[Rfam]
RNA sequence: AAUCCAAAUAGGUGGCAAAAAUGCCAUAGUCUUACAAUGAUAUGAGCAGUUAUACACAUGGGAUAAAAUAAUACUGGGCCAUUAUAAAUUGAGAUGAAGUAAUCAUUUUCAUCUCUUAUGCAUGGACUAGACAUUG
Numbered sequence: 001a002a003u004c005c006a007a008a009u010a011g012g013u014g015g016c017a018a019a020a021a022u023g024c025c026a027u028a029g030u031c032u033u034a035c036a037a038u039g040a041u042a043u044g045a046g047c048a049g050u051u052a053u054a055c056a057c058a059u060g061g062g063a064u065a066a067a068a069u070a071a072u073a074c075u076g077g078g079c080c081a082u083u084a085u086a087a088a089u090u091g092a093g094a095u096g097a098a099g100u101a102a103u104c105a106u107u108u109u110c111a112u113c114u115c116u117u118a119u120g121c122a123u124g125g126a127c128u129a130g131a132c133a134u135u136g
Stems, first nucleotide, its partner, number of pairs: 003063003007059001015050002022048003027042002030040002074130004079125003083122001085120002091115005096109005

A member of the RNA family "Small nucleolar RNA SNORA20" from Prolemur simus, 136 nucleotides long. It scores 87 bits against the family's covariance model. ACA20 is a member of the H/ACA class of snoRNA that guide the sites of modification of uridines to pseudouridines. The base pairs follow the family's consensus structure, which was predicted with ILM. Rfam links the family to the GO terms nucleolus and RNA processing. Its Rfam clan is "SNORA20 clan".